c-di-GMP-I riboswitch aptamer: an 85-nucleotide RNA from Acaryochloris thomasi. Its family is annotated with cyclic-di-GMP binding in the Gene Ontology.
[Rfam]
RNA sequence: CUCUCGAAAGGGUACCUUGCAUCGAAAGGGCAAGACACAAAUUAGCAGGCCUAAGCUUUACAGUAUGGUGGCUGCUAGUGCCGAA
Numbered sequence: 001c002u003c004u005c006g007a008a009a010g011g012g013u014a015c016c017u018u019g020c021a022u023c024g025a026a027a028g029g030g031c032a033a034g035a036c037a038c039a040a041a042u043u044a045g046c047a048g049g050c051c052u053a054a055g056c057u058u059u060a061c062a063g064u065a066u067g068g069u070g071g072c073u074g075c076u077a078g079u080g081c082c083g084a085a
Stems, first nucleotide, its partner, number of pairs: 012038002017033004022029002041079004046074003049069003056063002